[Rfam]
RNA sequence: UAUUAGGUUGGUGCGAAAGUAAUUGCGGUUUUGGCCAUCACUUUCGAUGGCCAAAACCGCAAUUACUUUCGCACCAACCUAAUA
Numbered sequence: 001u002a003u004u005a006g007g008u009u010g011g012u013g014c015g016a017a018a019g020u021a022a023u024u025g026c027g028g029u030u031u032u033g034g035c036c037a038u039c040a041c042u043u044u045c046g047a048u049g050g051c052c053a054a055a056a057c058c059g060c061a062a063u064u065a066c067u068u069u070c071g072c073a074c075c076a077a078c079c080u081a082a083u084a
Base pairs, nucleotide, nucleotide: 001084002083003082004081005080006079007078008077009076010075011074012073013072014071015070016069017068018067019066020065021064022063023062024061025060026059027058028057029056030055031054032053033052034051035050036049037048038047039046
The family of this 84-nucleotide sequence from Rhinopithecus bieti is "mir-548 microRNA precursor family". The family has 11 seed sequences and 3,009 matches in Rfam 15.1. Rfam links the family to the GO terms miRNA-mediated post-transcriptional gene silencing and RISC complex. The base pairs follow the family's consensus structure, which was predicted with WAR. Lineage of the source: Eukaryota > Teleostomi > Theria > Cercopithecoidea > Rhinopithecus. It scores 99 bits against the family's covariance model. For this family Rfam cites "Ultra-high throughput sequencing-based small RNA discovery and discrete statistical biomarker analysis in a collection of cervical tumours and matched controls" (Witten et al., BMC Biol, 2010).